[Rfam]
RNA: SAM (S-adenosyl methionine) riboswitch aptamer
Nucleotides: 114
Base pairs, nucleotide, nucleotide: 001080002079003078004077009040011039012038013037014036015035016034021032022031041066042065043064046062047061048060049058050057083104084103086101087100088099089098090097091096
Number, partner (000 for none) and nucleotide at each position: 001080g002079c003078u004077c005000a006000c007000g008000a009040g010000c011039a012038g013037c014036g015035a016034c017000c018000a019000c020000a021032a022031g023000c024000c025000c026000u027000c028000c029000g030000g031022c032021u033000g034016g035015u036014c037013g038012c039011u040009c041066g042065g043064c044000u045000a046062c047061c048060u049058g050057c051000c052000c053000c054000c055000g056000c057050g058049c059000a060048a061047g062046g063000u064043g065042c066041c067000c068000c069000c070000g071000g072000a073000g074000g075000a076000a077004g078003a079002g080001c081000c082000g083104g084103c085000g086101u087100c088099c089098g090097c091096c092000g093000u094000c095000c096091g097090g098089c099088g100087g101086a102000g103084g104083c105000a106000a107000c108000g109000c110000g111000g112000g113000g114000c